[Rfam]
RNA sequence: CUUGAUCGACCCCAGCCUCAGCGGACGACCAUCCACCCGCUCCUGCCCGUAAGUCGCCAGCAGCGCCUGAGCCUC
Numbered sequence: 001c002u003u004g005a006u007c008g009a010c011c012c013c014a015g016c017c018u019c020a021g022c023g024g025a026c027g028a029c030c031a032u033c034c035a036c037c038c039g040c041u042c043c044u045g046c047c048c049g050u051a052a053g054u055c056g057c058c059a060g061c062a063g064c065g066c067c068u069g070a071g072c073c074u075c
Base pairs, nucleotide, nucleotide: 016024017023032070033069038065039064043060044059045058047056049054

This 75-nucleotide RNA sequence belongs to the Rfam family "ASpks TB sRNA". It is annotated as an antisense RNA. The family's consensus secondary structure is taken from published work.